[Rfam]
Nucleotides: 135
Stems, first nucleotide, its partner, number of pairs: 002053003019048001025042004078123003089111006
Number, partner (000 for none) and nucleotide at each position: 001000c002053u003052g004051c005000a006000g007000c008000c009000a010000g011000u012000u013000a014000a015000g016000c017000c018000a019048a020000c021000c022000a023000u024000g025042c026041u027040c028039u029000u030000u031000u032000c033000c034000c035000c036000a037000u038000g039028g040027g041026a042025g043000c044000c045000c046000c047000a048019u049000g050000g051004g052003c053002a054000a055000u056000g057000g058000c059000c060000a061000c062000a063000a064000a065000c066000a067000g068000c069000a070000g071000c072000c073000u074000c075000c076000u077000u078123g079122g080121u081000a082000g083000u084000g085000u086000a087000u088000g089111c090110a091109g092108c093107c094106u095000u096000u097000c098000g099000c100000u101000c102000a103000u104000g105000u106094g107093g108092g109091u110090u111089g112000u113000c114000c115000u116000a117000a118000g119000g120000g121080a122079c123078c124000u125000u126000g127000g128000a129000g130000a131000c132000a133000a134000g135000c